[Rfam]
RNA sequence: CCUCUGCCAGAUUCAAGUAAUCCAGGAUAGGCUGUUUUCCACCAGCGUGGCCUAUUUUUGAUUACUUGUUUCUGGAGGUGG
Numbered sequence: 001c002c003u004c005u006g007c008c009a010g011a012u013u014c015a016a017g018u019a020a021u022c023c024a025g026g027a028u029a030g031g032c033u034g035u036u037u038u039c040c041a042c043c044a045g046c047g048u049g050g051c052c053u054a055u056u057u058u059u060g061a062u063u064a065c066u067u068g069u070u071u072c073u074g075g076a077g078g079u080g081g
Base pairs, nucleotide, nucleotide: 002080004078005077007075008074009073010072011071014068015067016066017065018064019063020062021061022060024058025057026056027055028054029053030052031051032050033049